Rfam assigns this 211-nucleotide RNA sequence from [Bacteroides] pectinophilus to the family "6S / SsrS RNA". It is annotated as a non-coding RNA gene. The match comes from Rfam's covariance-model search (53 bits). On this family, see Wassarman and Storz, Cell 2000: "6S RNA regulates E. coli RNA polymerase activity". About the family: E. coli 6S RNA was the first non coding RNA to be sequenced, but its function was unknown until recently.

[Rfam]
RNA sequence: UGUUUCCUGGGGUGUUCGCCAACCCACUAUUUUGAACCUACAUUUAUUGACAGGGAUUCUUAUAUCUGUAAUCUAAUGUCAGGCCUCCGGUGACAUAAUUGUCACGGUGCGCAUUAGCGCAUCAGUCAGUGGAAGGCAGCGGAUUGCAUGCGGUUACCCACCUAGCUUUGCUAGGCGUCGAGAUCGUGGGAAACGGCAUUUUGGGAGCAUU
Numbered sequence: 001u002g003u004u005u006c007c008u009g010g011g012g013u014g015u016u017c018g019c020c021a022a023c024c025c026a027c028u029a030u031u032u033u034g035a036a037c038c039u040a041c042a043u044u045u046a047u048u049g050a051c052a053g054g055g056a057u058u059c060u061u062a063u064a065u066c067u068g069u070a071a072u073c074u075a076a077u078g079u080c081a082g083g084c085c086u087c088c089g090g091u092g093a094c095a096u097a098a099u100u101g102u103c104a105c106g107g108u109g110c111g112c113a114u115u116a117g118c119g120c121a122u123c124a125g126u127c128a129g130u131g132g133a134a135g136g137c138a139g140c141g142g143a144u145u146g147c148a149u150g151c152g153g154u155u156a157c158c159c160a161c162c163u164a165g166c167u168u169u170g171c172u173a174g175g176c177g178u179c180g181a182g183a184u185c186g187u188g189g190g191a192a193a194c195g196g197c198a199u200u201u202u203g204g205g206a207g208c209a210u211u
Stems, first nucleotide, its partner, number of pairs: 004207012017195002033180003037175002053159003059153002064149001067148007079136002084132002087129001